Source information:
ZMP/ZTP riboswitch aptamer (pfl RNA motif): a 92-nucleotide RNA from Georgenia yuyongxinii. The match comes from Rfam's covariance-model search (54 bits). Pairs were carried over by alignment from the consensus structure, which is taken from published work. A reference for the family is Tran et al. (2020), "Parallel Discovery Strategies Provide a Basis for Riboswitch Ligand Design", Cell Chem Biol.
RNA sequence: GGUCCUGGCCGUGACUGGCGAGGAAGGUGGCGGUCACCACCGGGGAGCGGCCGGAAGUCCCCUGCAGAGCACCGCGCGCCUGGGUGCCUGGG
Number, nucleotide and partner (000 for none) at each position: 001g000002g000003u056004c000005c054006u053007g052008g051009c050010c049011g048012u047013g000014a000015c044016u043017g080018g079019c078020g077021a000022g000023g000024a000025a000026g000027g040028u039029g038030g037031c000032g000033g000034u000035c000036a000037c030038c029039a028040c027041c000042g000043g016044g015045g000046a000047g012048c011049g010050g009051c008052c007053g006054g005055a000056a003057g000058u000059c000060c000061c000062c000063u000064g000065c000066a000067g000068a000069g087070c086071a085072c084073c083074g000075c000076g000077c020078g019079c018080c017081u000082g000083g073084g072085u071086g070087c069088c000089u000090g000091g000092g000